[Rfam]
Nucleotides: 097
Base pairs, nucleotide, nucleotide: 001097002096003095004094005093006092007091008090013042015041016040017039021032022031023030026069027068028067029066043061044060045059046058048057049056065089070086071085072084073083074082
Number, partner (000 for none) and nucleotide at each position: 001097u002096u003095c004094u005093u006092a007091u008090c009000a010000a011000g012000a013042g014000u015041g016040g017039u018000g019000g020000a021032g022031u023030g024000a025000c026069u027068a028067g029066g030023c031022a032021c033000u034000a035000u036000g037000a038000a039017a040016c041015c042013c043061g044060g045059c046058a047000a048057c049056c050000u051000g052000u053000a054000a055000a056049g057048g058046u059045g060044c061043u062000a063000c064000a065089u066029c067028c068027u069026a070086c071085a072084g073083g074082c075000g076000c077000g078000u079000c080000a081000g082074g083073u084072c085071u086070g087000a088000a089065a090008g091007a092006u093005a094004a095003g096002a097001a
Overview
A member of the RNA family "SAM riboswitch aptamer (S box leader)" from Aedoeadaptatus coxii, 97 nucleotides long. Rfam 15.1 lists 9,625 matches to the family in 4,158 species. Its family is annotated with regulation of gene expression in the Gene Ontology.